RNA sequence: CCAGGCUGAGGUAGUAGGUUGUAUAGUUGAGAAUUACACCCCGGGAGAUAACUGUACAGCCUCCUAGCUUUCCCUG
Numbered sequence: 001c002c003a004g005g006c007u008g009a010g011g012u013a014g015u016a017g018g019u020u021g022u023a024u025a026g027u028u029g030a031g032a033a034u035u036a037c038a039c040c041c042c043g044g045g046a047g048a049u050a051a052c053u054g055u056a057c058a059g060c061c062u063c064c065u066a067g068c069u070u071u072c073c074c075u076g
Base pairs, nucleotide, nucleotide: 002076003075004074005073008070009069010068012066013065014064016062017061018060019059020058021057022056023055024054025053026052027051040047